[Rfam]
RNA sequence: AACUGCCAUAAUGGCCAUAGCAGGAGCAUUCACGUUGUGUCCCCUGUCAGAUGCCAACAAAUCUGCUAAAUUCUACU
Numbered sequence: 001a002a003c004u005g006c007c008a009u010a011a012u013g014g015c016c017a018u019a020g021c022a023g024g025a026g027c028a029u030u031c032a033c034g035u036u037g038u039g040u041c042c043c044c045u046g047u048c049a050g051a052u053g054c055c056a057a058c059a060a061a062u063c064u065g066c067u068a069a070a071u072u073c074u075a076c077u
Stems, first nucleotide, its partner, number of pairs: 013042002016039001019077002022074004026038003048065005
Mammalian CPEB3 ribozyme: a 77-nucleotide RNA from Crocodylus porosus. Lineage of the source: Eukaryota > Opisthokonta > Craniata > Archelosauria > Crocodylus. Pairs were carried over by alignment from the consensus structure, which is taken from published work.